[Rfam]
RNA: mir-24 microRNA precursor family
RNA sequence: AUCUCCUGUGCCUACUGAACUGAUAUCAGUGAGUUAUGAAAGUGCUGGCUCAGUUCAGCAGGAACUGGAG
Numbered sequence: 001a002u003c004u005c006c007u008g009u010g011c012c013u014a015c016u017g018a019a020c021u022g023a024u025a026u027c028a029g030u031g032a033g034u035u036a037u038g039a040a041a042g043u044g045c046u047g048g049c050u051c052a053g054u055u056c057a058g059c060a061g062g063a064a065c066u067g068g069a070g
Stems, first nucleotide, its partner, number of pairs: 003070004008065002011062003015058009026048005